[Rfam]
RNA sequence: AUCGACUGCCGCGACUGGCGAAGGUGGGCCACCACCGGGGAGCGGCCACGGCACUGAUGCGAGCGUCGACCGCCUGGGCGCGUCCA
Numbered sequence: 001a002u003c004g005a006c007u008g009c010c011g012c013g014a015c016u017g018g019c020g021a022a023g024g025u026g027g028g029c030c031a032c033c034a035c036c037g038g039g040g041a042g043c044g045g046c047c048a049c050g051g052c053a054c055u056g057a058u059g060c061g062a063g064c065g066u067c068g069a070c071c072g073c074c075u076g077g078g079c080g081c082g083u084c085c086a
Stems, first nucleotide, its partner, number of pairs: 003051001008046005015039002017074004024035004063081005